[Rfam]
Rfam assigns this 157-nucleotide RNA from Blautia liquoris to the family "Clostridiales-1 RNA". The family's consensus secondary structure is taken from published work. NCBI's taxonomy places the organism under Bacteria, Bacillati, Clostridia, Lachnospirales, Blautia. It scores 133 bits against the family's covariance model. It is annotated as a small RNA.
RNA sequence: UGAUACUAGGGUUGAAAACUUAUGCUUUUUCAUGCUAGCAUGAAAAAAAGCAUAAGCUUGAAACCCAAACAAACAUGAGAAUGUAGUCCGAAAGGACGGAAUUCGAAUGCUUGUAGGAUUACGAGAGCGCUAAAGCGCGGAGCAAUCCGUAGUAUCA
Numbered sequence: 001u002g003a004u005a006c007u008a009g010g011g012u013u014g015a016a017a018a019c020u021u022a023u024g025c026u027u028u029u030u031c032a033u034g035c036u037a038g039c040a041u042g043a044a045a046a047a048a049a050g051c052a053u054a055a056g057c058u059u060g061a062a063a064c065c066c067a068a069a070c071a072a073a074c075a076u077g078a079g080a081a082u083g084u085a086g087u088c089c090g091a092a093a094g095g096a097c098g099g100a101a102u103u104c105g106a107a108u109g110c111u112u113g114u115a116g117g118a119u120u121a122c123g124a125g126a127g128c129g130c131u132a133a134a135g136c137g138c139g140g141a142g143c144a145a146u147c148c149g150u151a152g153u154a155u156c157a
Stems, first nucleotide, its partner, number of pairs: 001157007010065004016059002019056012031042004069114004074109003079104004086097004116148005122142001127138004